[Rfam]
RNA sequence: GAGCACCCCUGUCUCCGCCCACUCGGCCACCACGUGGCAGCCGAGCGGGGACCUUGGGGCAGCUU
Numbered sequence: 001g002a003g004c005a006c007c008c009c010u011g012u013c014u015c016c017g018c019c020c021a022c023u024c025g026g027c028c029a030c031c032a033c034g035u036g037g038c039a040g041c042c043g044a045g046c047g048g049g050g051a052c053c054u055u056g057g058g059g060c061a062g063c064u065u
Stems, first nucleotide, its partner, number of pairs: 001065004007059004017052001019050002022045006030037002
RNA: MIR2907 microRNA precursor family